Rfam assigns this 100-nucleotide sequence from Kluyvera genomosp. 3 to the family "RprA RNA". Rfam's curators write: Translational regulation of the stationary phase sigma factor RpoS is mediated by the formation of a double-stranded RNA stem-loop structure in the upstream region of the rpoS messenger RNA, occluding the translation initiation site. A search with the family's covariance model found it, with a score of 83 bits. The family's RNA type in Rfam is small RNA. Lineage of the source: Bacteria > Gammaproteobacteria > Enterobacterales > Enterobacteriaceae > Kluyvera. The literature on the family includes a 2001 paper in Mol Microbiol by Majdalani et al., "Regulation of RpoS by a novel small RNA: the characterization of RprA".
RNA sequence: AAGGCAAUAGAUCAACCCCUUGAUUUAUAUAUCCCCUGAGUGAAACAACGAAUUGCUGUGUGUAGUCUUUGCCCAUCUCCCACGAUGGGCCUUUUUUUGC
Numbered sequence: 001a002a003g004g005c006a007a008u009a010g011a012u013c014a015a016c017c018c019c020u021u022g023a024u025u026u027a028u029a030u031a032u033c034c035c036c037u038g039a040g041u042g043a044a045a046c047a048a049c050g051a052a053u054u055g056c057u058g059u060g061u062g063u064a065g066u067c068u069u070u071g072c073c074c075a076u077c078u079c080c081c082a083c084g085a086u087g088g089g090c091c092u093u094u095u096u097u098u099g100c
Base pairs, nucleotide, nucleotide: 003021004020030038031037054062055061056060071090072089073088074087075086076085077084